The record is an 86-nucleotide RNA sequence from Hibiscus trionum, which matches "mir-160 microRNA precursor family" in Rfam. Taxonomically the source falls in Hibiscus (Eukaryota, Streptophytina, Mesangiospermae, Pentapetalae).

RNA sequence: UCAUGCGUGGCUCCUCGCAUGCCAUUCGCGAAGGCCACCAGAUUCUUGAUAGACUUUGCAAAUGGCAUACAGGGAGCCAGGCAUGC
Numbered sequence: 001u002c003a004u005g006c007g008u009g010g011c012u013c014c015u016c017g018c019a020u021g022c023c024a025u026u027c028g029c030g031a032a033g034g035c036c037a038c039c040a041g042a043u044u045c046u047u048g049a050u051a052g053a054c055u056u057u058g059c060a061a062a063u064g065g066c067a068u069a070c071a072g073g074g075a076g077c078c079a080g081g082c083a084u085g086c
Base pairs, nucleotide, nucleotide: 002085003084004083005082006081008079009078010077011076012075013074014073017070019068020067021066022065023064024063028059029058